[Rfam]
RNA sequence: UAAAUCAAGAAGAAGUUAUCCGCUUCUCACCUUACAACUUUGUUCGUAAGGUUAAUAAACUCACUAACCAAUAGGUGUAGUUUUAGACUUGUGAAGCGGAUGUUAUACAUCCUGCUUUUUUUAUUUUAA
Numbered sequence: 001u002a003a004a005u006c007a008a009g010a011a012g013a014a015g016u017u018a019u020c021c022g023c024u025u026c027u028c029a030c031c032u033u034a035c036a037a038c039u040u041u042g043u044u045c046g047u048a049a050g051g052u053u054a055a056u057a058a059a060c061u062c063a064c065u066a067a068c069c070a071a072u073a074g075g076u077g078u079a080g081u082u083u084u085a086g087a088c089u090u091g092u093g094a095a096g097c098g099g100a101u102g103u104u105a106u107a108c109a110u111c112c113u114g115c116u117u118u119u120u121u122u123a124u125u126u127u128a129a
Base pairs, nucleotide, nucleotide: 011027012026013025014024015023016022029052030051031050034047035046037043038042095116096115097114098112099111100110101109102108103107
RNA: Ribosomal protein L20 leader
Organism: Alkaliphilus sp.